This 85-nucleotide RNA from Theropithecus gelada belongs to the Rfam family "mir-4436 microRNA precursor family". Its family is annotated with miRNA-mediated post-transcriptional gene silencing and RISC complex in the Gene Ontology. The family has 2 seed sequences and 72 matches in Rfam 15.1. It scores 86 bits against the family's covariance model. The base pairs follow the family's consensus structure, which was predicted with RNAalifold.
RNA sequence: UCCUCACUUGUCCACUUCUGCCUGCCCUGCCUAAAUCACAGAGCAGAUUCGCAGGGCAGGGCAGGCAGAAGUGGAAAAGUGAGGC
Numbered sequence: 001u002c003c004u005c006a007c008u009u010g011u012c013c014a015c016u017u018c019u020g021c022c023u024g025c026c027c028u029g030c031c032u033a034a035a036u037c038a039c040a041g042a043g044c045a046g047a048u049u050c051g052c053a054g055g056g057c058a059g060g061g062c063a064g065g066c067a068g069a070a071g072u073g074g075a076a077a078a079g080u081g082a083g084g085c
Stems, first nucleotide, its partner, number of pairs: 002084008011075009021065012036045001